[Rfam]
RNA sequence: CUUCUCAAAUAGGCAUCAAGGCUGAAGAACUCAGAAAUCAGCGUGUUGAUUAUCAGCUUCUUCUCUGUUUUCUUAUGAGUGUGGAGUUAAAUCACAACACAACAUUU
Numbered sequence: 001c002u003u004c005u006c007a008a009a010u011a012g013g014c015a016u017c018a019a020g021g022c023u024g025a026a027g028a029a030c031u032c033a034g035a036a037a038u039c040a041g042c043g044u045g046u047u048g049a050u051u052a053u054c055a056g057c058u059u060c061u062u063c064u065c066u067g068u069u070u071u072c073u074u075a076u077g078a079g080u081g082u083g084g085a086g087u088u089a090a091a092u093c094a095c096a097a098c099a100c101a102a103c104a105u106u107u
Base pairs, nucleotide, nucleotide: 043100044099045098046097047096048095055088056087057086058085059084060083063079064078065077
A member of the RNA family "Small nucleolar RNA snoR97" from Amborella trichopoda, 107 nucleotides long.
Rfam classes the family as an H/ACA-box small nucleolar RNA.
On this family, see Marker et al., Curr Biol 2002: "Experimental RNomics: identification of 140 candidates for small non-messenger RNAs in the plant Arabidopsis thaliana".
The base pairs follow the family's consensus structure, which was predicted with WAR.
Lineage of the source: Eukaryota > Streptophytina > Spermatophyta > Magnoliopsida > Amborella.
Rfam links the family to the GO terms RNA processing and nucleolus.